[Rfam]
RNA: Eukaryotic large subunit ribosomal RNA, nucleotides 1 to 421
RNA sequence: UGACCUCAAAUCAGGUAGGAAUACCCGCUGAACUUAAGCAUAUCAAUAAGCGGAGGAAAAGAAACCAACCGGGAUUGCCUCAGUAACGGCGAGUGAAGCGGCAAGAGCUCAAAUUUGAAAUCUGGUACCUGUGGUGCCCGAGUUGUAAUUUGUAGAGCAGGACUCCAGCAGCGGCCUUUGCCUAUGUUCUUUGGAACAAGACGUCAUGGAGGGUGAUAAUCCCGUAUGGCGGGGGCCCCGCUGCGGUGUGAGUGCUGGUCGACGAGUCGAGUUGUUUGGGAAUGCAGCUCUAAGUGGGUGGUAUACUCCAUCUAAAGCUAAAUAUCAGCGAGAGACCGAUAGCGAACAAGUACAGUGAUGGAAAGAUGAAAAGAACUUUGAAAAGAGAGUGAAAAAGUACGUGAAAUUGUUGAAAGGGAAG
Dot-bracket structure: .......................((((((.....((....))......))))).).........((....))...((((......((.....)).....))))..((((..((((..((.((.((((.......)))).)).))..))))....((.(((.((((..(((((((.(((((((...(.((((......)))))..(...)..((.......)).....)))))))...))))))).....)))).))).))........(((((((........))))))).....(((((........)))))..)))).................................((....))...............((((....))))..................................